[Rfam]
RNA sequence: GGCCUAAAGCGUCCGUAGCUGGCCGUGCAAGUUCGUCGGGAAAUCCACUCGCUUAACGAGUGGGCGUCCGGCGAAAACUGCUCGGCUUGGGACCGGAAGAUCCAAGGGGUACGUCCGGGGUAGGAGUGAAAUCCCGUAAUCCUGGACGGACCACCGAUGGCGAAAGCACCUUGGAAGGACGGAUCCGACAGUGAGGGACGAAAGCUAGGGUCUCGAACCGGAUUAGAUACCCGGGUAGUCCUAGCCGUAAACGAUGCUCGCUAGGUGUGGCGCAGGCUACGAGCCUGCGUUGUGCCGUAGGAAGCCGUGAAGCGAGCCGCCUGGGAAGUACGUCUGCAAGGAUGAAACUUAAAGGAAU
Numbered sequence: 001g002g003c004c005u006a007a008a009g010c011g012u013c014c015g016u017a018g019c020u021g022g023c024c025g026u027g028c029a030a031g032u033u034c035g036u037c038g039g040g041a042a043a044u045c046c047a048c049u050c051g052c053u054u055a056a057c058g059a060g061u062g063g064g065c066g067u068c069c070g071g072c073g074a075a076a077a078c079u080g081c082u083c084g085g086c087u088u089g090g091g092a093c094c095g096g097a098a099g100a101u102c103c104a105a106g107g108g109g110u111a112c113g114u115c116c117g118g119g120g121u122a123g124g125a126g127u128g129a130a131a132u133c134c135c136g137u138a139a140u141c142c143u144g145g146a147c148g149g150a151c152c153a154c155c156g157a158u159g160g161c162g163a164a165a166g167c168a169c170c171u172u173g174g175a176a177g178g179a180c181g182g183a184u185c186c187g188a189c190a191g192u193g194a195g196g197g198a199c200g201a202a203a204g205c206u207a208g209g210g211u212c213u214c215g216a217a218c219c220g221g222a223u224u225a226g227a228u229a230c231c232c233g234g235g236u237a238g239u240c241c242u243a244g245c246c247g248u249a250a251a252c253g254a255u256g257c258u259c260g261c262u263a264g265g266u267g268u269g270g271c272g273c274a275g276g277c278u279a280c281g282a283g284c285c286u287g288c289g290u291u292g293u294g295c296c297g298u299a300g301g302a303a304g305c306c307g308u309g310a311a312g313c314g315a316g317c318c319g320c321c322u323g324g325g326a327a328g329u330a331c332g333u334c335u336g337c338a339a340g341g342a343u344g345a346a347a348c349u350u351a352a353a354g355g356a357a358u
Base pairs, nucleotide, nucleotide: 001321002320003319009318011199012198013197014196016193018192019191020190022086023085024084025083027081028080030079031078032075033074034073035072036071037070038069039068040067045063046062047061048060049059050058051057090186091185092184093182094181095180101175102174103173104172105171106170107169108152109151112148113147114146115145116144117143118142119141123134124133125132160167161166204245205244206243207242208241209240214238218234219233220232221231256317257316258315259314260313261312264296265295266294267293268292269291270290271289272288273287274286275285276284277283300306301305323350324349325348332343333342334341335340
RNA: Archaeal small subunit ribosomal RNA, nucleotides 501 to 858